[Rfam]
RNA sequence: GGAUGUGAGGGCGAUCUGGCUGCGACAUCUGUCACCCCAUUGAUCGCCAGGGUUGAUUCGGCUGAUCUGGCUGGCUAGGCGGGUGUCCCCUUCCUCCCUCACCGCUCCAUGUGCGUCCCUCCCGAAGCUGCGCGCUCGGUCGAAGAGGACGACCAUCCCCGAUAGAGGAGGACCGGUCUUCGGUCAAGGGUAUACGAGUAGCUGCGCUCCCCUGCUAGAACCUCCAAACAAGCUCUCAAAUGGCUCCGAGAUAAAACCACUGGCAGAGAGGCUGCAAUGAAGCUGGCAGGUGUGUCGGGGCGGGGGGGAGUGAGGGGGGCUGCUUCAGCAUGUCUACCU
Numbered sequence: 001g002g003a004u005g006u007g008a009g010g011g012c013g014a015u016c017u018g019g020c021u022g023c024g025a026c027a028u029c030u031g032u033c034a035c036c037c038c039a040u041u042g043a044u045c046g047c048c049a050g051g052g053u054u055g056a057u058u059c060g061g062c063u064g065a066u067c068u069g070g071c072u073g074g075c076u077a078g079g080c081g082g083g084u085g086u087c088c089c090c091u092u093c094c095u096c097c098c099u100c101a102c103c104g105c106u107c108c109a110u111g112u113g114c115g116u117c118c119c120u121c122c123c124g125a126a127g128c129u130g131c132g133c134g135c136u137c138g139g140u141c142g143a144a145g146a147g148g149a150c151g152a153c154c155a156u157c158c159c160c161g162a163u164a165g166a167g168g169a170g171g172a173c174c175g176g177u178c179u180u181c182g183g184u185c186a187a188g189g190g191u192a193u194a195c196g197a198g199u200a201g202c203u204g205c206g207c208u209c210c211c212c213u214g215c216u217a218g219a220a221c222c223u224c225c226a227a228a229c230a231a232g233c234u235c236u237c238a239a240a241u242g243g244c245u246c247c248g249a250g251a252u253a254a255a256a257c258c259a260c261u262g263g264c265a266g267a268g269a270g271g272c273u274g275c276a277a278u279g280a281a282g283c284u285g286g287c288a289g290g291u292g293u294g295u296c297g298g299g300g301c302g303g304g305g306g307g308g309a310g311u312g313a314g315g316g317g318g319g320c321u322g323c324u325u326c327a328g329c330a331u332g333u334c335u336a337c338c339u
Base pairs, nucleotide, nucleotide: 001108002107003106005102006101007100008099009098010097011096013093014092018090019089024087025086026085027084028083029082030081031080032079033078035074036073037070038069039068042067043066044065045064046062047061048060116171117170118168119167120166121165122139123138124137125136127135128134140162141161142160147158148157149156201329202328203327207322210319211318212317213316215314222310223309224308225307229304232301233300234299235298236297